[Rfam]
Nucleotides: 074
Stems, first nucleotide, its partner, number of pairs: 001073007010026004028044005050066005
Number, partner (000 for none) and nucleotide at each position: 001073g002072g003071g004070g005069g006068a007067u008000u009000a010026g011025c012024u013023c014000a015000u016000u017000u018000g019000g020000c021000u022000a023013g024012a025011g026010c027000a028044c029043u030042u031041g032040c033000c034000u035000u036000g037000c038000a039000c040032g041031c042030a043029a044028g045000g046000g047000g048000u049000g050066g051065u052064g053063g054062g055000u056000u057000c058000g059000a060000a061000u062054c063053c064052c065051a066050u067007a068006u069005c070004c071003u072002c073001c074000a
A member of the RNA family "tRNA" from Mycoplasma sp. Mirounga ES2805-ORL, 74 nucleotides long. Rfam classes the family as a transfer RNA. Rfam's curators write: Transfer RNA (tRNA) molecules are approximately 80 nucleotides in length. Gene Ontology term of the family: triplet codon-amino acid adaptor activity.